Description:
Rfam assigns this 308-nucleotide RNA from Castanea mollissima to the family "Plant signal recognition particle RNA". Clan: SRP clan.
RNA sequence: GCCGAGCUUGGUCACGUGAGCUUGUAACCCAAGUGGGGGCUCUAAGGUGAUGGAACAUUGGCCCAGCUCAACUGGUCGGACCCAAACUUGGCUCACAUGCUGGCUCGCCCGUUCCAAGCAAAGAGUUGAAUCGAUGGGCUUGGGCGAAAGCUCUGGGUCCAGCGUUUCCUAAAGCGAAGGGGAAUGCGUGAGGCUGGCUUCACAGAGCAGCGACCACUUUCCGCUCUUUGCAGUGGAAGGAUAACGAGCCGGUGCCAUUUGUGUUCAAUAUGGCCUGCUUGGUUGGACCCAACUGGACCAUCACUCUU
Numbered sequence: 001g002c003c004g005a006g007c008u009u010g011g012u013c014a015c016g017u018g019a020g021c022u023u024g025u026a027a028c029c030c031a032a033g034u035g036g037g038g039g040c041u042c043u044a045a046g047g048u049g050a051u052g053g054a055a056c057a058u059u060g061g062c063c064c065a066g067c068u069c070a071a072c073u074g075g076u077c078g079g080a081c082c083c084a085a086a087c088u089u090g091g092c093u094c095a096c097a098u099g100c101u102g103g104c105u106c107g108c109c110c111g112u113u114c115c116a117a118g119c120a121a122a123g124a125g126u127u128g129a130a131u132c133g134a135u136g137g138g139c140u141u142g143g144g145c146g147a148a149a150g151c152u153c154u155g156g157g158u159c160c161a162g163c164g165u166u167u168c169c170u171a172a173a174g175c176g177a178a179g180g181g182g183a184a185u186g187c188g189u190g191a192g193g194c195u196g197g198c199u200u201c202a203c204a205g206a207g208c209a210g211c212g213a214c215c216a217c218u219u220u221c222c223g224c225u226c227u228u229u230g231c232a233g234u235g236g237a238a239g240g241a242u243a244a245c246g247a248g249c250c251g252g253u254g255c256c257a258u259u260u261g262u263g264u265u266c267a268a269u270a271u272g273g274c275c276u277g278c279u280u281g282g283u284u285g286g287a288c289c290c291a292a293c294u295g296g297a298c299c300a301u302c303a304c305u306c307u308u
Stems, first nucleotide, its partner, number of pairs: 001040003004023007028037003044307001046305008056295002058292003061288001063286004068282004072277001074275004078266004083261003089257003094254002100252008109240002112238005118231009128168003132164002135161008143152003169174001176221005187212003194205003